Shown here is an 88-nucleotide RNA sequence from Paenibacillus validus, a member of the family "c-di-GMP-I riboswitch aptamer". Taxonomically the source falls in Paenibacillus (Bacteria, Bacillati, Bacilli, Paenibacillaceae). Pairs were carried over by alignment from the consensus structure, which is taken from published work.
RNA sequence: CGACGAUCAUGGCAAAACCAUUGAAAAAUGGUGACGCAAAGCUAUAGGGACUUCGUUGGAAUCUCCAAUAUGUCAGCCAGCUGCCGUA
Numbered sequence: 001c002g003a004c005g006a007u008c009a010u011g012g013c014a015a016a017a018c019c020a021u022u023g024a025a026a027a028a029u030g031g032u033g034a035c036g037c038a039a040a041g042c043u044a045u046a047g048g049g050a051c052u053u054c055g056u057u058g059g060a061a062u063c064u065c066c067a068a069u070a071u072g073u074c075a076g077c078c079a080g081c082u083g084c085c086g087u088a
Base pairs, nucleotide, nucleotide: 012037013036017032018031019030020029021028022027040082041081042080043079047078048077049074050073051072056068057067058066059065